The family of this 138-nucleotide RNA sequence from Trema andersonii is "Small nucleolar RNA U19".

[Rfam]
RNA sequence: AUUUGGCUUAGUUAGGGGGCAAAGAAAAAUCGAACAAAAAGGAGGCCGUAUUGGUUUUCUUCUUUUAUAAAAACUGAGGCCUUUUGAGGGGACUUGCAAAUUUCCCGUUGUUGGUCCCCCAAGCAGCCUUGGACAUUC
Number, nucleotide and partner (000 for none) at each position: 001a000002u000003u000004u021005g020006g000007c018008u017009u016010a000011g000012u000013u000014a000015g000016g009017g008018g007019g000020c005021a004022a000023a000024g000025a000026a000027a000028a000029a000030u000031c000032g000033a000034a065035c000036a063037a000038a061039a000040a000041g000042g058043a057044g056045g055046c054047c000048g000049u000050a000051u000052u000053g000054g046055u045056u044057u043058u042059c000060u000061u038062c000063u036064u000065u034066u000067a000068u000069a000070a000071a000072a000073a000074c132075u131076g130077a129078g128079g127080c126081c000082u000083u123084u122085u121086g120087a000088g119089g118090g117091g116092a115093c114094u113095u000096g111097c110098a109099a108100a000101u000102u000103u000104c000105c000106c000107g000108u099109u098110g097111u096112u000113g094114g093115u092116c091117c090118c089119c088120c086121a085122a084123g083124c000125a000126g080127c079128c078129u077130u076131g075132g074133a000134c000135a000136u000137u000138c000

It is annotated as an H/ACA-box small nucleolar RNA. Rfam links the family to the GO terms RNA processing and nucleolus.